RNA sequence: CCUGCUGCUGUCAGUAACAAGGAUUCAUCCUGUUAUAAAACACAAUUCAACAGGAAAUCUCUGUUACUGGGGGUAAAGGA
Numbered sequence: 001c002c003u004g005c006u007g008c009u010g011u012c013a014g015u016a017a018c019a020a021g022g023a024u025u026c027a028u029c030c031u032g033u034u035a036u037a038a039a040a041c042a043c044a045a046u047u048c049a050a051c052a053g054g055a056a057a058u059c060u061c062u063g064u065u066a067c068u069g070g071g072g073g074u075a076a077a078g079g080a
Stems, first nucleotide, its partner, number of pairs: 011070009021060005029054006037047002
Dot-bracket structure: ..........(((((((((.(((((...((((((..((.......)).)))))).))))).)))))))))..........
Shown here is an 80-nucleotide sequence from Bagarius yarrelli, a member of the family "mir-459 microRNA precursor family". NCBI's taxonomy places the organism under Eukaryota, Chordata, Actinopterygii, Siluroidei, Bagarius. The match comes from Rfam's covariance-model search (83 bits). The family's consensus secondary structure was predicted with RNAalifold.